[Rfam]
RNA sequence: AUGUGGUGAAAGACAUGGGUAGUGAGACGCUUUUUAUAGGUCGUGUCACUAUUCUGUUUUUCGCCUCAUU
Number, nucleotide and partner (000 for none) at each position: 001a000002u000003g000004u000005g000006g000007u000008g062009a061010a060011a059012g058013a057014c056015a055016u000017g054018g053019g052020u000021a050022g049023u048024g047025a046026g000027a044028c043029g042030c000031u000032u000033u000034u000035u000036a000037u000038a000039g000040g000041u000042c029043g028044u027045g000046u025047c024048a023049c022050u021051a000052u019053u018054c017055u015056g014057u013058u012059u011060u010061u009062c008063g000064c000065c000066u000067c000068a000069u000070u000
mir-71 microRNA precursor family: a 70-nucleotide sequence from Enterobius vermicularis. The organism belongs to Enterobius, within Eukaryota. The family's consensus secondary structure was predicted with RNAalifold. Its family is annotated with RISC complex and miRNA-mediated post-transcriptional gene silencing in the Gene Ontology.